Shown here is a 67-nucleotide RNA sequence from Lynx canadensis, a member of the family "Small nucleolar RNA SNORD109A". A reference for the family is Runte et al. (2001), "The IC-SNURF-SNRPN transcript serves as a host for multiple small nucleolar RNA species and as an antisense RNA for UBE3A", Hum Mol Genet. Pairs were carried over by alignment from the consensus structure, which was predicted with WAR. Humans have two copies of the SNORD109 gene, SNORD109A and SNORD109B. Clan: SNORD74 clan. The source organism's lineage runs through Eukaryota, Vertebrata, Tetrapoda, Boreoeutheria and Lynx.
RNA sequence: AGAUCAAUGAUGAGCGCAAUUGUCUGGGGAUCCUGAGGGAUUGAUUCCAGAUGUCAAUCUGAGGUCC
Numbered sequence: 001a002g003a004u005c006a007a008u009g010a011u012g013a014g015c016g017c018a019a020u021u022g023u024c025u026g027g028g029g030a031u032c033c034u035g036a037g038g039g040a041u042u043g044a045u046u047c048c049a050g051a052u053g054u055c056a057a058u059c060u061g062a063g064g065u066c067c
Base pairs, nucleotide, nucleotide: 002066003065004064005063